The family of this 112-nucleotide RNA from Streptomyces chumphonensis is "TPP riboswitch aptamer (THI element)". Gene Ontology term of the family: thiamine pyrophosphate binding. The match comes from Rfam's covariance-model search (57 bits). Taxonomically the source falls in Streptomyces (Bacteria, Bacillati, Actinomycetes, Kitasatosporales). The family's consensus secondary structure is taken from published work.

RNA sequence: CAACGCACACGCGGGAGCCCGGCGCACCGGGCUGAGAGGGAGGCGGACGGCCUCCGACCGUACGAACCUGAUCCGGGUCAUGCCGGCGAAGGGAGGAGCUGGAACCCAUGCA
Dot-bracket structure: .......(.(((((..(((((......)))))......(((((.......)))))..)))).....(((...((((......))))...)))...).)..............
Numbered sequence: 001c002a003a004c005g006c007a008c009a010c011g012c013g014g015g016a017g018c019c020c021g022g023c024g025c026a027c028c029g030g031g032c033u034g035a036g037a038g039g040g041a042g043g044c045g046g047a048c049g050g051c052c053u054c055c056g057a058c059c060g061u062a063c064g065a066a067c068c069u070g071a072u073c074c075g076g077g078u079c080a081u082g083c084c085g086g087c088g089a090a091g092g093g094a095g096g097a098g099c100u101g102g103a104a105c106c107c108a109u110g111c112a
Stems, first nucleotide, its partner, number of pairs: 008098001010096001011061004017032005039055005067092003073086004